[Rfam]
RNA sequence: UCCACGUGCACAUGAUGAAAUCUAUGUUGGUAGGGACAUCUGAGAAAAUCUGAUGAAUGCCAACUUUUCUGAUCUAGCAUGUGGU
Number, nucleotide and partner (000 for none) at each position: 001u000002c084003c083004a082005c081006g080007u079008g078009c077010a000011c000012a000013u000014g000015a000016u000017g000018a000019a000020a000021u000022c000023u000024a000025u000026g000027u000028u000029g000030g000031u000032a000033g000034g000035g000036a000037c000038a000039u000040c000041u000042g000043a000044g000045a000046a000047a000048a000049u000050c000051u000052g000053a000054u000055g000056a000057a000058u000059g000060c000061c000062a000063a000064c000065u000066u000067u000068u000069c000070u000071g000072a000073u000074c000075u000076a000077g009078c008079a007080u006081g005082u004083g003084g002085u000
RNA: Small nucleolar RNA SNORD74